Annotation:
The family of this 72-nucleotide RNA sequence from Gongylonema pulchrum is "tRNA". The organism belongs to Gongylonema, within Eukaryota. About the family: Transfer RNA (tRNA) molecules are approximately 80 nucleotides in length. The base pairs follow the family's consensus structure, which is taken from published work. It is annotated as a transfer RNA.
RNA sequence: GGGGAUAUAGCUCAGGGGUAGAGCGCUCCCUUCGCAUGGGAGAGGGCUGAGGUUCGAUUUCUCAUAUCUCCA
Numbered sequence: 001g002g003g004g005a006u007a008u009a010g011c012u013c014a015g016g017g018g019u020a021g022a023g024c025g026c027u028c029c030c031u032u033c034g035c036a037u038g039g040g041a042g043a044g045g046g047c048u049g050a051g052g053u054u055c056g057a058u059u060u061c062u063c064a065u066a067u068c069u070c071c072a
Stems, first nucleotide, its partner, number of pairs: 001071007010024004026042005048064005